RNA sequence: UCGUGCUAAGCGGGGAGGUAGCGGUGCCCUGUACUCGCAAUCCGCUAUAGCGAGGCUGAAUCCCUUUCCGAGGUUGCAGUUUCUCAUGGUCUGCCCUGAGUAAGUGGUGUUGACAUCCGGGUUCUGCGCAACGGAAUCCCGUGAACCCUGUCAGGUCCGGAAGGAAGCAGCAGUAAGCGGGUCGUUCCGUGUGCCGCGGAGUUGCCUGGAUCGAGCAAACUGCUCAGGUAACGCUUGAGAAGCUGUGAUCGACGAAAGGUGCACGG
Numbered sequence: 001u002c003g004u005g006c007u008a009a010g011c012g013g014g015g016a017g018g019u020a021g022c023g024g025u026g027c028c029c030u031g032u033a034c035u036c037g038c039a040a041u042c043c044g045c046u047a048u049a050g051c052g053a054g055g056c057u058g059a060a061u062c063c064c065u066u067u068c069c070g071a072g073g074u075u076g077c078a079g080u081u082u083c084u085c086a087u088g089g090u091c092u093g094c095c096c097u098g099a100g101u102a103a104g105u106g107g108u109g110u111u112g113a114c115a116u117c118c119g120g121g122u123u124c125u126g127c128g129c130a131a132c133g134g135a136a137u138c139c140c141g142u143g144a145a146c147c148c149u150g151u152c153a154g155g156u157c158c159g160g161a162a163g164g165a166a167g168c169a170g171c172a173g174u175a176a177g178c179g180g181g182u183c184g185u186u187c188c189g190u191g192u193g194c195c196g197c198g199g200a201g202u203u204g205c206c207u208g209g210a211u212c213g214a215g216c217a218a219a220c221u222g223c224u225c226a227g228g229u230a231a232c233g234c235u236u237g238a239g240a241a242g243c244u245g246u247g248a249u250c251g252a253c254g255a256a257a258g259g260u261g262c263a264c265g266g
Stems, first nucleotide, its partner, number of pairs: 001266006009057003012030004017025001019023001034054005063259006072250005079243008088234001092230002096227006104220002107216002115211008123200006129191002132189005138181005148173004156165003
A member of the RNA family "Bacterial large signal recognition particle RNA" from Salipaludibacillus agaradhaerens, 266 nucleotides long. The literature on the family includes a 2003 paper in Nucleic Acids Res by Rosenblad et al., "SRPDB: Signal Recognition Particle Database". The base pairs follow the family's consensus structure, which is taken from published work. Clan: SRP clan.